Background
This 130-nucleotide RNA from Sporomusa silvacetica belongs to the Rfam family "Molybdenum/Tungsten riboswitch aptamer (Moco RNA motif)".
RNA sequence: AAUAGAAAUUGCACUCCGAGCUGCAUGACCUAACGUUAUCAAUGGUCUGGUAGCCUGAACUUAUGUUCACAGGGCAGUGAAAGAAAUUUCACUACCUCCACUAUUGGAAAGGAGGCGCUUCGUAAGUUGU
Numbered sequence: 001a002a003u004a005g006a007a008a009u010u011g012c013a014c015u016c017c018g019a020g021c022u023g024c025a026u027g028a029c030c031u032a033a034c035g036u037u038a039u040c041a042a043u044g045g046u047c048u049g050g051u052a053g054c055c056u057g058a059a060c061u062u063a064u065g066u067u068c069a070c071a072g073g074g075c076a077g078u079g080a081a082a083g084a085a086a087u088u089u090c091a092c093u094a095c096c097u098c099c100a101c102u103a104u105u106g107g108a109a110a111g112g113a114g115g116c117g118c119u120u121c122g123u124a125a126g127u128u129g130u
Base pairs, nucleotide, nucleotide: 003124004123011116012115014114015113016112017111020054021053022052023051024050027047028046029045030044035040056069057068058067059066060065072097073096074095076093077092078091079090080089081088082087098107099106
Overview
A search with the family's covariance model found it, with a score of 69 bits.